[Rfam]
RNA sequence: CCGACGAGGAUCGGGUUUCGUAGAUGCUCGAGCUGUGUGAUGACCAGUUCGUUGUCGACGAAACCUGAACUGACGUCGG
Numbered sequence: 001c002c003g004a005c006g007a008g009g010a011u012c013g014g015g016u017u018u019c020g021u022a023g024a025u026g027c028u029c030g031a032g033c034u035g036u037g038u039g040a041u042g043a044c045c046a047g048u049u050c051g052u053u054g055u056c057g058a059c060g061a062a063a064c065c066u067g068a069a070c071u072g073a074c075g076u077c078g079g
Stems, first nucleotide, its partner, number of pairs: 001079006012067009030050005
The record is a 79-nucleotide RNA from Apolygus lucorum, which matches "mir-981 microRNA precursor family" in Rfam. Its family is annotated with RISC complex and miRNA-mediated post-transcriptional gene silencing in the Gene Ontology. The family has 17 seed sequences and 180 matches in Rfam 15.1. NCBI's taxonomy places the organism under Eukaryota, Allotriocarida, Insecta, Hemiptera, Apolygus.